[Rfam]
RNA sequence: GGCUGGUUGGAAGGCAGUGAGCUAUCUCAAUUGAUUUUUCACAAUUACAGAUUGAACUACCUGUUCUUCCCCCACCCAUCACUACUGUACUUGACUAGUCUAAA
Numbered sequence: 001g002g003c004u005g006g007u008u009g010g011a012a013g014g015c016a017g018u019g020a021g022c023u024a025u026c027u028c029a030a031u032u033g034a035u036u037u038u039u040c041a042c043a044a045u046u047a048c049a050g051a052u053u054g055a056a057c058u059a060c061c062u063g064u065u066c067u068u069c070c071c072c073c074a075c076c077c078a079u080c081a082c083u084a085c086u087g088u089a090c091u092u093g094a095c096u097a098g099u100c101u102a103a104a
Stems, first nucleotide, its partner, number of pairs: 001100008010092002014088002016083005021077001029065003033061001
RNA: Y RNA